This 177-nucleotide RNA from Anopheles stephensi belongs to the Rfam family "drz-agam-2-2 ribozyme". The match comes from Rfam's covariance-model search (106 bits). Taxonomically the source falls in Neocellia (Eukaryota, Pancrustacea, Endopterygota, Culicoidea). The family has 5 seed sequences and 486 matches in Rfam 15.1.

RNA sequence: AGCAAUACUGCACUGGUAAGGUACGGAUCCGAAGCCUCUUAAAGGUCCAAACCCCGCUUCGACUCGUAUGUCCCUGGCGUACGGAACGGUAACAUGUCUCUCCAAAUAUCUGAGCUUGGGUAUACGGGGAAACCAAACCCCUUGGGAAGGUGGAUGAUAUUGGCUAAAUUGAGCGAA
Numbered sequence: 001a002g003c004a005a006u007a008c009u010g011c012a013c014u015g016g017u018a019a020g021g022u023a024c025g026g027a028u029c030c031g032a033a034g035c036c037u038c039u040u041a042a043a044g045g046u047c048c049a050a051a052c053c054c055c056g057c058u059u060c061g062a063c064u065c066g067u068a069u070g071u072c073c074c075u076g077g078c079g080u081a082c083g084g085a086a087c088g089g090u091a092a093c094a095u096g097u098c099u100c101u102c103c104a105a106a107u108a109u110c111u112g113a114g115c116u117u118g119g120g121u122a123u124a125c126g127g128g129g130a131a132a133c134c135a136a137a138c139c140c141c142u143u144g145g146g147a148a149g150g151u152g153g154a155u156g157a158u159a160u161u162g163g164c165u166a167a168a169u170u171g172a173g174c175g176a177a
Stems, first nucleotide, its partner, number of pairs: 014084001016082002020054002022051001025048003029045002058177004063173003066169002068080003072089002093162002095159004102153002108151004116137002119134003139146002